A member of the RNA family "Bacterial large subunit ribosomal RNA" from Veillonella sp. oral taxon 780, 585 nucleotides of a longer RNA. Pairs were carried over by alignment from the consensus structure, which is taken from published work. A search with the family's covariance model found it, with a score of 2827 bits.

RNA sequence: CCCGCGACUGGACAGAAAGACCCCAUGGAGCUUUACUGUAACUUAGGAUUGAUUUUAGUUAAUGAAUGUACAGGAUAGGUGGGAGACGUAGAAGCUAGGGCGCUAGUCUUAGUGGAGUCGCUGUUGGGAUACCACCCUUUGAUUAAUUGAAAUCUAACGGGAAGAGUAACGACCUUCCGGACAGUCCUAGGUGGACAGUUUGACUGGGGCGGUCGCCUCCUAAAGAGUAACGGAGGCGCCCAAAGGUUCCCUCAGAGCGGACGGAAAUCGCUCGAAGAGUGUAAAGGCAGAAGGGAGCUUGACUGCGAGACCAACAAGUCGAGCAGGGACGAAAGUCGGGCUUAGUGAUCCGGUGGUGCCGAGUGGAAGGGCCAUCGCUCAACGGAUAAAAGCUACCCUGGGGAUAACAGGCUAAUCUCUCCCAAGAGUCCAUAUCGACGGGGAGGUUUGGCACCUCGAUGUCGGCUCAUCACAUCCUGGGGCUGAAGUAGGUCCCAAGGGUUCGGCUGUUCGCCGAUUAAAGUGGUACGUGAGCUGGGUUCAGAACGUCGUGAGACAGUUCGGUCCCUAUCCAUCGCGGGCGAA
Numbered sequence: 001c002c003c004g005c006g007a008c009u010g011g012a013c014a015g016a017a018a019g020a021c022c023c024c025a026u027g028g029a030g031c032u033u034u035a036c037u038g039u040a041a042c043u044u045a046g047g048a049u050u051g052a053u054u055u056u057a058g059u060u061a062a063u064g065a066a067u068g069u070a071c072a073g074g075a076u077a078g079g080u081g082g083g084a085g086a087c088g089u090a091g092a093a094g095c096u097a098g099g100g101c102g103c104u105a106g107u108c109u110u111a112g113u114g115g116a117g118u119c120g121c122u123g124u125u126g127g128g129a130u131a132c133c134a135c136c137c138u139u140u141g142a143u144u145a146a147u148u149g150a151a152a153u154c155u156a157a158c159g160g161g162a163a164g165a166g167u168a169a170c171g172a173c174c175u176u177c178c179g180g181a182c183a184g185u186c187c188u189a190g191g192u193g194g195a196c197a198g199u200u201u202g203a204c205u206g207g208g209g210c211g212g213u214c215g216c217c218u219c220c221u222a223a224a225g226a227g228u229a230a231c232g233g234a235g236g237c238g239c240c241c242a243a244a245g246g247u248u249c250c251c252u253c254a255g256a257g258c259g260g261a262c263g264g265a266a267a268u269c270g271c272u273c274g275a276a277g278a279g280u281g282u283a284a285a286g287g288c289a290g291a292a293g294g295g296a297g298c299u300u301g302a303c304u305g306c307g308a309g310a311c312c313a314a315c316a317a318g319u320c321g322a323g324c325a326g327g328g329a330c331g332a333a334a335g336u337c338g339g340g341c342u343u344a345g346u347g348a349u350c351c352g353g354u355g356g357u358g359c360c361g362a363g364u365g366g367a368a369g370g371g372c373c374a375u376c377g378c379u380c381a382a383c384g385g386a387u388a389a390a391a392g393c394u395a396c397c398c399u400g401g402g403g404a405u406a407a408c409a410g411g412c413u414a415a416u417c418u419c420u421c422c423c424a425a426g427a428g429u430c431c432a433u434a435u436c437g438a439c440g441g442g443g444a445g446g447u448u449u450g451g452c453a454c455c456u457c458g459a460u461g462u463c464g465g466c467u468c469a470u471c472a473c474a475u476c477c478u479g480g481g482g483c484u485g486a487a488g489u490a491g492g493u494c495c496c497a498a499g500g501g502u503u504c505g506g507c508u509g510u511u512c513g514c515c516g517a518u519u520a521a522a523g524u525g526g527u528a529c530g531u532g533a534g535c536u537g538g539g540u541u542c543a544g545a546a547c548g549u550c551g552u553g554a555g556a557c558a559g560u561u562c563g564g565u566c567c568c569u570a571u572c573c574a575u576c577g578c579g580g581g582c583g584a585a
Stems, first nucleotide, its partner, number of pairs: 001581007010573003015567001022402004027398002029394005035199004042191007051154013065140002068137001078136005085119003094113008158179003162176003202214004215237006238383001240340002246298006252278002255273006279288002303326004309320003328337003351377007359370002411452003415449001416446007426436002463538001464536004468530001469527005476501002479496006503517005544562004548557003